[Rfam]
RNA sequence: AAUAGAAAAACGACAAAUCAGAUUUUUCUCUUGAUUUUCAGCUUUUUCCUCCUAAAAAAAUUCAAAUCAAACUAAAAACACUAAAAGUCAGGAGGAAAAAUAUUAUUUGUCAUUCUCCCAUU
Numbered sequence: 001a002a003u004a005g006a007a008a009a010a011c012g013a014c015a016a017a018u019c020a021g022a023u024u025u026u027u028c029u030c031u032u033g034a035u036u037u038u039c040a041g042c043u044u045u046u047u048c049c050u051c052c053u054a055a056a057a058a059a060a061u062u063c064a065a066a067u068c069a070a071a072c073u074a075a076a077a078a079c080a081c082u083a084a085a086a087g088u089c090a091g092g093a094g095g096a097a098a099a100a101u102a103u104u105a106u107u108u109g110u111c112a113u114u115c116u117c118c119c120a121u122u
Base pairs, nucleotide, nucleotide: 001122002121003120005118007116009114010113012111013110014109015108016107017106018105020103022101023100024099025098026097027096028094029093030092031091032090033089034088035087036086037085038084040082041081044078045077046076047075
RNA: MIR7504 microRNA precursor family
Organism: Gossypium arboreum